Rfam assigns this 81-nucleotide RNA sequence from Loxodonta africana to the family "Small nucleolar RNA SNORD111". Taxonomically the source falls in Loxodonta (Eukaryota, Metazoa, Amniota, Elephantidae).

RNA sequence: CAGCCUGAAGUGAUGACUCACAUUCAUGUCUCUUCUCUGAUGGAUGUCUUGAAGAAAUUUUUGUGUAUCUGACCAGGACUU
Dot-bracket structure: .((((......................................................................)).)).
Numbered sequence: 001c002a003g004c005c006u007g008a009a010g011u012g013a014u015g016a017c018u019c020a021c022a023u024u025c026a027u028g029u030c031u032c033u034u035c036u037c038u039g040a041u042g043g044a045u046g047u048c049u050u051g052a053a054g055a056a057a058u059u060u061u062u063g064u065g066u067a068u069c070u071g072a073c074c075a076g077g078a079c080u081u
Stems, first nucleotide, its partner, number of pairs: 002080002004077002
It is annotated as a C/D-box small nucleolar RNA. The base pairs follow the family's consensus structure, which was predicted with RNAalifold. It scores 59 bits against the family's covariance model. Rfam 15.1 lists 894 matches to the family in 541 species. Rfam links the family to the GO terms RNA processing and nucleolus.